The family of this 90-nucleotide sequence from Genlisea aurea is "mir-156 microRNA precursor family". Gene Ontology terms of the family: miRNA-mediated post-transcriptional gene silencing and RISC complex. For this family Rfam cites "microRNAs: tiny regulators with great potential" (Ambros, Cell, 2001). From the family's description: This family represents the plant microRNA (miRNA) precursor mir-156.
RNA sequence: GUGACAGAAGAGAGUAAGCACAGAUGGUGUUUUCGAUCAUGAUGUUUCGGACAUGGUUGGAGCUAUUCGUGCUUACCCUCUUUCUGUCAC
Dot-bracket structure: ((((((((((((.((((((((.(((((...................................))))).)))))))).))).)))))))))
Numbered sequence: 001g002u003g004a005c006a007g008a009a010g011a012g013a014g015u016a017a018g019c020a021c022a023g024a025u026g027g028u029g030u031u032u033u034c035g036a037u038c039a040u041g042a043u044g045u046u047u048c049g050g051a052c053a054u055g056g057u058u059g060g061a062g063c064u065a066u067u068c069g070u071g072c073u074u075a076c077c078c079u080c081u082u083u084c085u086g087u088c089a090c
Stems, first nucleotide, its partner, number of pairs: 001090009010080003014076008023067005